[Rfam]
RNA sequence: CGGAGGCCUGAGAAGGUUGAACAGCUUGCACUGUGCUGUUGUAACUGGUUUUAACCUCCAAGACUAACUAACAAGCCACACAGUAAUGUCACUCUGGAGCCACACAGGGCUGGCAAGUGUGUUUGUGGGUCAUUA
Numbered sequence: 001c002g003g004a005g006g007c008c009u010g011a012g013a014a015g016g017u018u019g020a021a022c023a024g025c026u027u028g029c030a031c032u033g034u035g036c037u038g039u040u041g042u043a044a045c046u047g048g049u050u051u052u053a054a055c056c057u058c059c060a061a062g063a064c065u066a067a068c069u070a071a072c073a074a075g076c077c078a079c080a081c082a083g084u085a086a087u088g089u090c091a092c093u094c095u096g097g098a099g100c101c102a103c104a105c106a107g108g109g110c111u112g113g114c115a116a117g118u119g120u121g122u123u124u125g126u127g128g129g130u131c132a133u134u135a
Base pairs, nucleotide, nucleotide: 002059003058004057005056006055015046016045017044018043020040021039022038023037024036025035079127080126081125086120087119088118094113095112096111097110100108101107